Rfam assigns this 394-nucleotide RNA sequence from Sutcliffiella cohnii to the family "Bacterial RNase P class B". Rfam classes the family as a ribozyme. Gene Ontology terms of the family: dimeric ribonuclease P complex, tRNA processing and ribonuclease P activity.
[Rfam]
RNA sequence: ACAGUUGGGUAACCGCUAUAGUAUAUACUAUAGAGGAAAGUCCAUGCUCGCACAGGCUGAGAUGCCUGUAGUGUUCGUGCCUAGCGAAAAAAUAAGCUAGGGUAGUUCGGUAUUACACUGGACUAACGGCAGGGAAAACACCUAAGUCGCUUGCGAUAUGGUGUGAAUACCUUGAAAGUGCCACAGUGACGUAGUCCAAUUAGAAAUAAUUGGAGUGGAACGCGGUAAACCCCUCGAGCGAGAAACCCAAACAAUGGUAGGGGCACCUUCUCAAAGGAAAUUGAACGAAGAGAAGGACAGAUCAUUGUACAUGAAUCUGUAGACAGAUGGUUACCACCGGAGUACAAGGAGCAAUCCGUUUGUAGUACGAAGGAACAGAACAUGGCUUACAAAC
Numbered sequence: 001a002c003a004g005u006u007g008g009g010u011a012a013c014c015g016c017u018a019u020a021g022u023a024u025a026u027a028c029u030a031u032a033g034a035g036g037a038a039a040g041u042c043c044a045u046g047c048u049c050g051c052a053c054a055g056g057c058u059g060a061g062a063u064g065c066c067u068g069u070a071g072u073g074u075u076c077g078u079g080c081c082u083a084g085c086g087a088a089a090a091a092a093u094a095a096g097c098u099a100g101g102g103u104a105g106u107u108c109g110g111u112a113u114u115a116c117a118c119u120g121g122a123c124u125a126a127c128g129g130c131a132g133g134g135a136a137a138a139c140a141c142c143u144a145a146g147u148c149g150c151u152u153g154c155g156a157u158a159u160g161g162u163g164u165g166a167a168u169a170c171c172u173u174g175a176a177a178g179u180g181c182c183a184c185a186g187u188g189a190c191g192u193a194g195u196c197c198a199a200u201u202a203g204a205a206a207u208a209a210u211u212g213g214a215g216u217g218g219a220a221c222g223c224g225g226u227a228a229a230c231c232c233c234u235c236g237a238g239c240g241a242g243a244a245a246c247c248c249a250a251a252c253a254a255u256g257g258u259a260g261g262g263g264c265a266c267c268u269u270c271u272c273a274a275a276g277g278a279a280a281u282u283g284a285a286c287g288a289a290g291a292g293a294a295g296g297a298c299a300g301a302u303c304a305u306u307g308u309a310c311a312u313g314a315a316u317c318u319g320u321a322g323a324c325a326g327a328u329g330g331u332u333a334c335c336a337c338c339g340g341a342g343u344a345c346a347a348g349g350a351g352c353a354a355u356c357c358g359u360u361u362g363u364a365g366u367a368c369g370a371a372g373g374a375a376c377a378g379a380a381c382a383u384g385g386c387u388u389a390c391a392a393a394c
Stems, first nucleotide, its partner, number of pairs: 004394003007390001008335007016033006038388003042385005047242005052069006075237003079233001080101006102127001103125009128232002131172003139163004146157003178230002180226003195214008246262003266296007297320006337373002342368004